[Rfam]
This 259-nucleotide part of an RNA from Spiroplasma taiwanense belongs to the Rfam family "Bacterial large subunit ribosomal RNA".
Pairs were carried over by alignment from the consensus structure, which is taken from published work.
NCBI's taxonomy places the organism under Bacteria, Mycoplasmatota, Mollicutes, Spiroplasmataceae, Spiroplasma taiwanense.
RNA sequence: GGAAAAUUGAGAAGAGCUGUUCCUAGUACGAGAGGACCGGAAUGGACGCACCCCUGGUGCUCCUGUUGUCACGCCAGUGGCACAGCAGGGUAGCUAUGUGCGGAAAGGAUAAUCGCUGAAGGCAUCUAAGCGAGAAGCCUCCUUCAAGAUGAGUUUUCCCAUUCUUUUGAAGUAAGAUCCCAUGUAGACCACAUGGUUGAUAGGUUGGGUGUGUAAGCACGGUGACGUGUUCAGCUUACCAAUACUAAUAGAUCGAGGU
Numbered sequence: 001g002g003a004a005a006a007u008u009g010a011g012a013a014g015a016g017c018u019g020u021u022c023c024u025a026g027u028a029c030g031a032g033a034g035g036a037c038c039g040g041a042a043u044g045g046a047c048g049c050a051c052c053c054c055u056g057g058u059g060c061u062c063c064u065g066u067u068g069u070c071a072c073g074c075c076a077g078u079g080g081c082a083c084a085g086c087a088g089g090g091u092a093g094c095u096a097u098g099u100g101c102g103g104a105a106a107g108g109a110u111a112a113u114c115g116c117u118g119a120a121g122g123c124a125u126c127u128a129a130g131c132g133a134g135a136a137g138c139c140u141c142c143u144u145c146a147a148g149a150u151g152a153g154u155u156u157u158c159c160c161a162u163u164c165u166u167u168u169g170a171a172g173u174a175a176g177a178u179c180c181c182a183u184g185u186a187g188a189c190c191a192c193a194u195g196g197u198u199g200a201u202a203g204g205u206u207g208g209g210u211g212u213g214u215a216a217g218c219a220c221g222g223u224g225a226c227g228u229g230u231u232c233a234g235c236u237u238a239c240c241a242a243u244a245c246u247a248a249u250a251g252a253u254c255g256a257g258g259u
Stems, first nucleotide, its partner, number of pairs: 001159008011145004017045007047102005055096003062089005067082006106140003113133005162171003173256001176254004180196005201247003204243005209237001211235001217230005